[Rfam]
RNA: Molybdenum/Tungsten riboswitch aptamer (Moco RNA motif)
Organism: Geobacteraceae bacterium
RNA sequence: UAGACUCAGUUACUCCGAGCCUGACCGCCUAAAGGAAUUACCCCACGGCGUCAGGCCAUUGGGUUGUGCGGGAAACGGCGCAGCCUUCCUUUGAAAAGGAGAAUUUCAUCUGUGCCA
Number, nucleotide and partner (000 for none) at each position: 001u000002a000003g111004a000005c000006u108007c000008a000009g000010u000011u103012a000013c101014u100015c099016c098017g000018a000019g056020c055021c054022u053023g052024a051025c050026c000027g049028c048029c047030u000031a000032a000033a000034g043035g042036a000037a000038u000039u000040a000041c000042c035043c034044c000045a000046c000047g029048g028049c027050g025051u024052c023053a022054g021055g020056c019057c000058a000059u000060u000061g086062g085063g084064u083065u082066g081067u080068g079069c078070g000071g076072g000073a000074a000075a000076c071077g000078g069079c068080g067081c066082a065083g064084c063085c062086u061087u094088c093089c000090u000091u000092u000093g088094a087095a000096a000097a000098g016099g015100a014101g013102a000103a011104u000105u000106u000107c000108a006109u000110c000111u003112g000113u000114g000115c000116c000117a000